[Rfam]
Notes: This 212-nucleotide sequence from Lyngbya sp. PCC 8106 belongs to the Rfam family "HNH endonuclease-associated RNA and ORF (HEARO) RNA". By type it is a non-coding RNA gene. The sequence is in the family's curated seed alignment. The base pairs follow the family's consensus structure, which is taken from published work. On this family, see Weinberg et al., Nature 2009: "Exceptional structured noncoding RNAs revealed by bacterial metagenome analysis".
RNA sequence: GUCAGCACCCCGCUCUAAAGAGCAGGGGCCGAAGCGCCUCUCUCUUAGAUAGCUGACCAGCCUAAGUCUUUGGACUACGUUUUUAGAGUUAUGACACCUACAAAUGCUUGACCGUUUGUAGCCCUGUCGUUAGUUUUUAAACAUUCCUACGAGGGGUAAGAAAGUGCAGCUAGCCGAACAAGCUUUAAAAACAUUGGCGAGGAAAAAAUUAC
Numbered sequence: 001g002u003c004a005g006c007a008c009c010c011c012g013c014u015c016u017a018a019a020g021a022g023c024a025g026g027g028g029c030c031g032a033a034g035c036g037c038c039u040c041u042c043u044c045u046u047a048g049a050u051a052g053c054u055g056a057c058c059a060g061c062c063u064a065a066g067u068c069u070u071u072g073g074a075c076u077a078c079g080u081u082u083u084u085a086g087a088g089u090u091a092u093g094a095c096a097c098c099u100a101c102a103a104a105u106g107c108u109u110g111a112c113c114g115u116u117u118g119u120a121g122c123c124c125u126g127u128c129g130u131u132a133g134u135u136u137u138u139a140a141a142c143a144u145u146c147c148u149a150c151g152a153g154g155g156g157u158a159a160g161a162a163a164g165u166g167c168a169g170c171u172a173g174c175c176g177a178a179c180a181a182g183c184u185u186u187a188a189a190a191a192c193a194u195u196g197g198c199g200a201g202g203a204a205a206a207a208a209u210u211a212c
Stems, first nucleotide, its partner, number of pairs: 001057006007050001009028002011025001014021002029048001031046002060198003064194001065076004079192011094127002098121008108206002112202002129174007137166001141165002144162002147160002149157002